[Rfam]
RNA sequence: AUUCGAAAAGACAAAAACACAGUUCUGGUUGGUAGUCCAGACGCGGCAAUCAGCCGUCAGUAACCUGCCUCCUAAGGUUGUCCAGUCUUUGUUAAGUUGUU
Numbered sequence: 001a002u003u004c005g006a007a008a009a010g011a012c013a014a015a016a017a018c019a020c021a022g023u024u025c026u027g028g029u030u031g032g033u034a035g036u037c038c039a040g041a042c043g044c045g046g047c048a049a050u051c052a053g054c055c056g057u058c059a060g061u062a063a064c065c066u067g068c069c070u071c072c073u074a075a076g077g078u079u080g081u082c083c084a085g086u087c088u089u090u091g092u093u094a095a096g097u098u099g100u101u
Stems, first nucleotide, its partner, number of pairs: 005092001007090005022042002025040004043057005067078004
The record is a 101-nucleotide RNA from Caproiciproducens galactitolivorans, which matches "azaaromatic riboswitch aptamer (yjdF RNA)" in Rfam. A search with the family's covariance model found it, with a score of 85 bits. The source organism's lineage runs through Bacteria, Bacillati, Bacillota, Clostridia and Caproiciproducens.